[Rfam]
RNA sequence: UUGUCUAAAGCGCUGAAUUUUGCAGUUGCAAAAGCGGGGGAACCAACGAGUAUGUACGGUUUUGCAAGCCGUGUGUGUCUCAUGGGGUGAAUUUUCCGGCCAAGUGCCGUAAAUAGGGCGACUCUCACGUCCGAAUCCGACAGCUAACCUCGUAAGCGUACAGGGAGAGGCAAC
Numbered sequence: 001u002u003g004u005c006u007a008a009a010g011c012g013c014u015g016a017a018u019u020u021u022g023c024a025g026u027u028g029c030a031a032a033a034g035c036g037g038g039g040g041a042a043c044c045a046a047c048g049a050g051u052a053u054g055u056a057c058g059g060u061u062u063u064g065c066a067a068g069c070c071g072u073g074u075g076u077g078u079c080u081c082a083u084g085g086g087g088u089g090a091a092u093u094u095u096c097c098g099g100c101c102a103a104g105u106g107c108c109g110u111a112a113a114u115a116g117g118g119c120g121a122c123u124c125u126c127a128c129g130u131c132c133g134a135a136u137c138c139g140a141c142a143g144c145u146a147a148c149c150u151c152g153u154a155a156g157c158g159u160a161c162a163g164g165g166a167g168a169g170g171c172a173a174c
Stems, first nucleotide, its partner, number of pairs: 011158004018033005034153006044084002085138003093113003116132004
Shown here is a 174-nucleotide RNA sequence from Paenibacillus polymyxa, a member of the family "c-di-AMP riboswitch aptamer (ydaO/yuaA leader)". The match comes from Rfam's covariance-model search (89 bits). Its family is annotated with regulation of gene expression and cyclic-di-AMP binding in the Gene Ontology.